Record summary:
The family of this 98-nucleotide sequence from Populus trichocarpa is "Small nucleolar RNA Z161/Z228". Pairs were carried over by alignment from the consensus structure, which was predicted with PFOLD. The family's RNA type in Rfam is C/D-box small nucleolar RNA.

Nucleotides: 098
Base pairs, nucleotide, nucleotide: 001098002097004095051059052058
Number, partner (000 for none) and nucleotide at each position: 001098a002097a003000a004095c005000c006000a007000a008000a009000u010000g011000a012000u013000g014000a015000u016000u017000u018000u019000g020000g021000a022000u023000u024000c025000a026000a027000a028000u029000u030000u031000c032000u033000c034000a035000c036000g037000a038000u039000g040000g041000a042000c043000a044000u045000c046000u047000g048000a049000g050000a051059c052058u053000c054000u055000u056000c057000a058052a059051g060000c061000u062000u063000c064000a065000g066000u067000g068000u069000u070000g071000a072000u073000u074000g075000a076000a077000u078000u079000a080000c081000c082000c083000a084000a085000u086000a087000c088000u089000c090000g091000u092000g093000a094000u095004g096000g097002u098001u